Rfam assigns this 513-nucleotide part of an RNA from Thamnocephalis sphaerospora to the family "Eukaryotic large subunit ribosomal RNA".
Clan: LSU clan.
The match comes from Rfam's covariance-model search (3036 bits).
Taxonomically the source falls in Thamnocephalis (Eukaryota, Opisthokonta, Zoopagomycota, Zoopagomycotina).
RNA sequence: UGGAAGAAUGUAGGUAAGGGAAGUCGGCAAAAUAGAUUCGAAACUUCGGGAUAAGAAUUGGCUCUUAGGGUAGGGUGUUCCGGGCGGUCGACAAGAAGGUCGUGGUCGCAUGGGUCUUGACUGGCUGCUUCGGUGGCCGGUCGGCCUGAGCUUGAUCGCUUCCGGGCGGUUGCUGCUUGGCGCAAGGCUAACGCUUUGUGCCGAACGGUUCACAACAUAACUACCGACUAAGAACUGGCGCUGACAAGGGGAAUCUGACUGUCUAAUUAAAACAUAGCAUUGCGAUGGCCGUAACUCGGUGUUGACGCAAUGUGAUUUCUGCCCAGUGCUCUGAAUGUCAAAGUGAAGAAAUUCAACCAAGCGCGGGUAAACGGCGGGAGUAACUAUGACUCUCUUAAGGUAGCCAAAUGCCUCGUCAUCUAAUUAGUGACGCGCAUGAAUGGAUUAACGAGAUUCCCACUGUCCCUACCUACCAUCCAGCGAAACCGCAGCCAAGGGAACGGACUUGGCAAA
Numbered sequence: 001u002g003g004a005a006g007a008a009u010g011u012a013g014g015u016a017a018g019g020g021a022a023g024u025c026g027g028c029a030a031a032a033u034a035g036a037u038u039c040g041a042a043a044c045u046u047c048g049g050g051a052u053a054a055g056a057a058u059u060g061g062c063u064c065u066u067a068g069g070g071u072a073g074g075g076u077g078u079u080c081c082g083g084g085c086g087g088u089c090g091a092c093a094a095g096a097a098g099g100u101c102g103u104g105g106u107c108g109c110a111u112g113g114g115u116c117u118u119g120a121c122u123g124g125c126u127g128c129u130u131c132g133g134u135g136g137c138c139g140g141u142c143g144g145c146c147u148g149a150g151c152u153u154g155a156u157c158g159c160u161u162c163c164g165g166g167c168g169g170u171u172g173c174u175g176c177u178u179g180g181c182g183c184a185a186g187g188c189u190a191a192c193g194c195u196u197u198g199u200g201c202c203g204a205a206c207g208g209u210u211c212a213c214a215a216c217a218u219a220a221c222u223a224c225c226g227a228c229u230a231a232g233a234a235c236u237g238g239c240g241c242u243g244a245c246a247a248g249g250g251g252a253a254u255c256u257g258a259c260u261g262u263c264u265a266a267u268u269a270a271a272a273c274a275u276a277g278c279a280u281u282g283c284g285a286u287g288g289c290c291g292u293a294a295c296u297c298g299g300u301g302u303u304g305a306c307g308c309a310a311u312g313u314g315a316u317u318u319c320u321g322c323c324c325a326g327u328g329c330u331c332u333g334a335a336u337g338u339c340a341a342a343g344u345g346a347a348g349a350a351a352u353u354c355a356a357c358c359a360a361g362c363g364c365g366g367g368u369a370a371a372c373g374g375c376g377g378g379a380g381u382a383a384c385u386a387u388g389a390c391u392c393u394c395u396u397a398a399g400g401u402a403g404c405c406a407a408a409u410g411c412c413u414c415g416u417c418a419u420c421u422a423a424u425u426a427g428u429g430a431c432g433c434g435c436a437u438g439a440a441u442g443g444a445u446u447a448a449c450g451a452g453a454u455u456c457c458c459a460c461u462g463u464c465c466c467u468a469c470c471u472a473c474c475a476u477c478c479a480g481c482g483a484a485a486c487c488g489c490a491g492c493c494a495a496g497g498g499a500a501c502g503g504a505c506u507u508g509g510c511a512a513a
Base pairs, nucleotide, nucleotide: 001479002478003477004476010473011472012471013470014469015468016467018465019464020463035059036058037057038056039055044049060236061235063233064232065231066230067229068228069225070224071223072222073221075213076212077211080208081207082206084176085175086174089172090171091170092169098163099162102159103158104157105156106155107154108151109150111148112147113146114145115144116143119142120141121140122139123138124137125136126135127134128133237241249458250457251456252455253454254453255452256450257449260274261273262272277313278312279311280310281309282308283307284306288300289299290298291297317444318443319442321375322374323373326372327371328368329367330366331365333364336363337362338361344355345354346353347352376394377393378392379391380390381389395399415431416430417429418428419427492509493508494507495506496505